RNA sequence: AGCUCGAUCGGGUCCACGGCCCGGGUGGUGAGCAGGUAGUCGCGGAUGGCCAUGCCGUGCCGGCCCUC
Numbered sequence: 001a002g003c004u005c006g007a008u009c010g011g012g013u014c015c016a017c018g019g020c021c022c023g024g025g026u027g028g029u030g031a032g033c034a035g036g037u038a039g040u041c042g043c044g045g046a047u048g049g050c051c052a053u054g055c056c057g058u059g060c061c062g063g064c065c066c067u068c
Stems, first nucleotide, its partner, number of pairs: 004063003008059001012029002015027003035056004040052001042050002
Overview
Rfam assigns this 68-nucleotide sequence from Actinospica durhamensis to the family "ASdes TB sRNA". The family's consensus secondary structure is taken from published work. NCBI's taxonomy places the organism under Bacteria, Bacillati, Actinomycetes, Catenulisporales, Actinospica. A search with the family's covariance model found it, with a score of 60 bits.